This 180-nucleotide sequence from Limosilactobacillus reuteri belongs to the Rfam family "Lysine riboswitch aptamer". Pairs were carried over by alignment from the consensus structure, which is taken from published work. Rfam describes the family as follows. Riboswitches are metabolite binding domains within certain messenger RNAs that serve as precision sensors for their corresponding targets. Taxonomically the source falls in Limosilactobacillus reuteri (Bacteria, Bacillati, Bacillota, Bacilli).

RNA sequence: AUAAAUCGAAGAGGCGCAACCGACACUAGUAAACUAAUUUAGUUCGCCAAGACAUUGAGGUUAGUUGAACAGGGAAGUUGCCGAAGCGCUUAGUUUGGCAUAUUAAGCAGCUGGGUCGUAGUUGAAUAAGCUACGGACUGUCGCAGGACAAUAAGAGCCUGCGUUGCGCUAUCGACAAAU
Numbered sequence: 001a002u003a004a005a006u007c008g009a010a011g012a013g014g015c016g017c018a019a020c021c022g023a024c025a026c027u028a029g030u031a032a033a034c035u036a037a038u039u040u041a042g043u044u045c046g047c048c049a050a051g052a053c054a055u056u057g058a059g060g061u062u063a064g065u066u067g068a069a070c071a072g073g074g075a076a077g078u079u080g081c082c083g084a085a086g087c088g089c090u091u092a093g094u095u096u097g098g099c100a101u102a103u104u105a106a107g108c109a110g111c112u113g114g115g116u117c118g119u120a121g122u123u124g125a126a127u128a129a130g131c132u133a134c135g136g137a138c139u140g141u142c143g144c145a146g147g148a149c150a151a152u153a154a155g156a157g158c159c160u161g162c163g164u165u166g167c168g169c170u171a172u173c174g175a176c177a178a179a180u
Base pairs, nucleotide, nucleotide: 006175007174008173009172010170011169016081017080018079019078020077024073032066033065034064035063036062037061038060039059085112086111087110088108089107090106091105092104093103094102113139114138116136117135118134119133120132121131122130123129142163143162144161145160146159147158